[Rfam]
RNA: Small nucleolar RNA Z199
Organism: Aquilegia coerulea
RNA sequence: GAUCAAGUGAUGAGUAAAAAAAAACUGCAACAAUAUGAUAGAUUGAUCAAUUCUUUCUUGAUUCUAUGUAUUUAAGUCUCUGAUGAUC
Numbered sequence: 001g002a003u004c005a006a007g008u009g010a011u012g013a014g015u016a017a018a019a020a021a022a023a024a025c026u027g028c029a030a031c032a033a034u035a036u037g038a039u040a041g042a043u044u045g046a047u048c049a050a051u052u053c054u055u056u057c058u059u060g061a062u063u064c065u066a067u068g069u070a071u072u073u074a075a076g077u078c079u080c081u082g083a084u085g086a087u088c
Base pairs, nucleotide, nucleotide: 001087003086004085005084040054041053042052044050